Selenocysteine insertion sequence 3: a 59-nucleotide RNA from Borborobacter arsenicus.
Its family is annotated with selenocysteine incorporation in the Gene Ontology.
Rfam 15.1 lists 640 matches to the family in 593 species.
Rfam classes the family as a cis-regulatory element.
A search with the family's covariance model found it, with a score of 78 bits.
A reference for the family is Huttenhofer et al. (1996), "Solution structure of mRNA hairpins promoting selenocysteine incorporation in Escherichia coli and their base-specific interaction with special elongation factor SELB", RNA.

RNA sequence: AUUUGACACGGACCGACGGUGUCCAGUUUGGGCCCAACAUUCGGUCGCGGUGCGAUGAC
Numbered sequence: 001a002u003u004u005g006a007c008a009c010g011g012a013c014c015g016a017c018g019g020u021g022u023c024c025a026g027u028u029u030g031g032g033c034c035c036a037a038c039a040u041u042c043g044g045u046c047g048c049g050g051u052g053c054g055a056u057g058a059c
Stems, first nucleotide, its partner, number of pairs: 007049001009047003013043001015042002018035002021033005